[Rfam]
RNA sequence: AUAGUCUUGGGAUGACUUAAAAAGCACCCUGGUCGGGAUGGGUUCUUACGACCCCUCGGGUUUCUUGCUUUUCCAUAAGAGCAAGUGGUGGAGCUGAGU
Numbered sequence: 001a002u003a004g005u006c007u008u009g010g011g012a013u014g015a016c017u018u019a020a021a022a023a024g025c026a027c028c029c030u031g032g033u034c035g036g037g038a039u040g041g042g043u044u045c046u047u048a049c050g051a052c053c054c055c056u057c058g059g060g061u062u063u064c065u066u067g068c069u070u071u072u073c074c075a076u077a078a079g080a081g082c083a084a085g086u087g088g089u090g091g092a093g094c095u096g097a098g099u
Stems, first nucleotide, its partner, number of pairs: 009029003013026002016024001040054002043051002058073003064085006